[Rfam]
RNA sequence: AACAGAGUAGGUUCCUGCGCGUUAAGUGCUUUCUGAACGGGGAGUUGUCAGAAGGACGAAAAGGUUUCUUGCGGUGCAGGUUCCGCAUCCCGCUGAC
Numbered sequence: 001a002a003c004a005g006a007g008u009a010g011g012u013u014c015c016u017g018c019g020c021g022u023u024a025a026g027u028g029c030u031u032u033c034u035g036a037a038c039g040g041g042g043a044g045u046u047g048u049c050a051g052a053a054g055g056a057c058g059a060a061a062a063g064g065u066u067u068c069u070u071g072c073g074g075u076g077c078a079g080g081u082u083c084c085g086c087a088u089c090c091c092g093c094u095g096a097c
Stems, first nucleotide, its partner, number of pairs: 003095003010084002014080006020073003026057002029055008040090003044086001061070003
Shown here is a 97-nucleotide RNA sequence from Holdemania filiformis, a member of the family "THF (Tetrahydrofolate) riboswitch aptamer". The organism belongs to Holdemania filiformis, within Bacteria. About the family: Tetrahydrofolate (THF) riboswitch was first reported for Ames et al. as an RNA motif in 5' untranslated (5'-UTR)regions of folate transport and biosynthesis genes in Firmicutes genomes.